[Rfam]
RNA sequence: CAGAGCACUCGCGGGAGUUCGGACGCACCGGGCUGAGAGGGAGGCUGGGGCGGCCUCCGACCGUAUGAACCUGAUCCGGGUCAUACCGGCGAAGGGAGGGGCAGCAAGCCCAUG
Numbered sequence: 001c002a003g004a005g006c007a008c009u010c011g012c013g014g015g016a017g018u019u020c021g022g023a024c025g026c027a028c029c030g031g032g033c034u035g036a037g038a039g040g041g042a043g044g045c046u047g048g049g050g051c052g053g054c055c056u057c058c059g060a061c062c063g064u065a066u067g068a069a070c071c072u073g074a075u076c077c078g079g080g081u082c083a084u085a086c087c088g089g090c091g092a093a094g095g096g097a098g099g100g101g102c103a104g105c106a107a108g109c110c111c112a113u114g
Stems, first nucleotide, its partner, number of pairs: 008100003011064004017033005040058008070095003076089004
TPP riboswitch aptamer (THI element): a 114-nucleotide RNA. Rfam links the family to the GO term thiamine pyrophosphate binding.